Notes:
The family of this 62-nucleotide RNA from Pedobacter rhizosphaerae is "Fluoride riboswitch aptamer (crcB RNA motif)". The literature on the family includes a 2012 paper in Science by Baker et al., "Widespread genetic switches and toxicity resistance proteins for fluoride".
[Rfam]
RNA sequence: UUGGAUAAUGGCGAUGGGGUGCCGCCAAAACCGCCAAACAGGCUGAUGACUCCUACAAUUUA
Numbered sequence: 001u002u003g004g005a006u007a008a009u010g011g012c013g014a015u016g017g018g019g020u021g022c023c024g025c026c027a028a029a030a031c032c033g034c035c036a037a038a039c040a041g042g043c044u045g046a047u048g049a050c051u052c053c054u055a056c057a058a059u060u061u062a
Base pairs, nucleotide, nucleotide: 010026011025012024013023016053017052018051019050020049033043034042035041